[Rfam]
RNA sequence: GUGGGAUACGGAGACAUGUGCCCCAUCACCAUGGGAGGCAAAAUGGUCGGCACUCUCUGUGCCAUUGCCGGUGUCCUGACCAUUGCCUUGCCUGUCCCUGUCAUCGUCUCCAAC
Numbered sequence: 001g002u003g004g005g006a007u008a009c010g011g012a013g014a015c016a017u018g019u020g021c022c023c024c025a026u027c028a029c030c031a032u033g034g035g036a037g038g039c040a041a042a043a044u045g046g047u048c049g050g051c052a053c054u055c056u057c058u059g060u061g062c063c064a065u066u067g068c069c070g071g072u073g074u075c076c077u078g079a080c081c082a083u084u085g086c087c088u089u090g091c092c093u094g095u096c097c098c099u100g101u102c103a104u105c106g107u108c109u110c111c112a113a114c
Stems, first nucleotide, its partner, number of pairs: 001114002004111002008107004013102004018097001020095002037077002040074001049063003
A member of the RNA family "Potassium channel RNA editing signal" from Lates calcarifer, 114 nucleotides long.